[Rfam]
The family of this 64-nucleotide RNA from Austrofundulus limnaeus is "Selenocysteine insertion sequence 1".
RNA sequence: GCCAGCUAAUGAUGACCUGCGCUAAAACCCAAAGCUGGGGAGUGCAGGUCUGAUGUCACCUGGC
Dot-bracket structure: (((((........((((((((((.....(((....)))..)))))))))).........)))))
Numbered sequence: 001g002c003c004a005g006c007u008a009a010u011g012a013u014g015a016c017c018u019g020c021g022c023u024a025a026a027a028c029c030c031a032a033a034g035c036u037g038g039g040g041a042g043u044g045c046a047g048g049u050c051u052g053a054u055g056u057c058a059c060c061u062g063g064c
Stems, first nucleotide, its partner, number of pairs: 001064005014050010029038003
Rfam classes the family as a cis-regulatory element. Rfam describes the family as follows. The incorporation of selenocysteine into a protein sequence is directed by an in-frame UGA codon (usually a stop codon) within the coding region of the mRNA. Selenoprotein mRNAs contain a conserved secondary structure in the 3' UTR that is required for the distinction of UGA stop from UGA selenocysteine. It scores 44 bits against the family's covariance model. The base pairs follow the family's consensus structure, which is taken from published work. Rfam 15.1 lists 3,793 matches to the family in 721 species.